[Rfam]
RNA sequence: ACACAAACUAUUCUACAAACAUUUUACAAAUUGUUGAUGUGACAUACUCCACAUCAACAUAUUGAUCAACAAAUUGCUUCACUGUAGUCUUUCGGGCCCCACACAAUAUGAUGCGAUGGAAUAUGCCACAUCAGCAGUUUAUAAAAUGUUUGUAGAAUAGUUUGUGU
Numbered sequence: 001a002c003a004c005a006a007a008c009u010a011u012u013c014u015a016c017a018a019a020c021a022u023u024u025u026a027c028a029a030a031u032u033g034u035u036g037a038u039g040u041g042a043c044a045u046a047c048u049c050c051a052c053a054u055c056a057a058c059a060u061a062u063u064g065a066u067c068a069a070c071a072a073a074u075u076g077c078u079u080c081a082c083u084g085u086a087g088u089c090u091u092u093c094g095g096g097c098c099c100c101a102c103a104c105a106a107u108a109u110g111a112u113g114c115g116a117u118g119g120a121a122u123a124u125g126c127c128a129c130a131u132c133a134g135c136a137g138u139u140u141a142u143a144a145a146a147u148g149u150u151u152g153u154a155g156a157a158u159a160g161u162u163u164g165u166g167u
Base pairs, nucleotide, nucleotide: 001167002166003165004164005163006162007161008160009159010158011157012156013155014154015153016152017151018150019149020148021147022146023145024144025143026142033135034134035133036132037131038130039129040128041127043125044124045123046122048120049119050118051117055113056112058110059109060108061107062106063105064104
MIR6140 microRNA precursor family: a 167-nucleotide RNA sequence from Panax ginseng. Lineage of the source: Eukaryota > Streptophyta > Spermatophyta > campanulids > Panax. The sequence is in the family's curated seed alignment.